[Rfam]
RNA: Acido-Lenti-1 RNA
Organism: Lacipirellula parvula
RNA sequence: CCAGGGGCUCGCGCCCCUGGCUACAAUAUGCCGCCCCUGCCGGGGCU
Numbered sequence: 001c002c003a004g005g006g007g008c009u010c011g012c013g014c015c016c017c018u019g020g021c022u023a024c025a026a027u028a029u030g031c032c033g034c035c036c037c038u039g040c041c042g043g044g045g046c047u
Stems, first nucleotide, its partner, number of pairs: 001020008033046005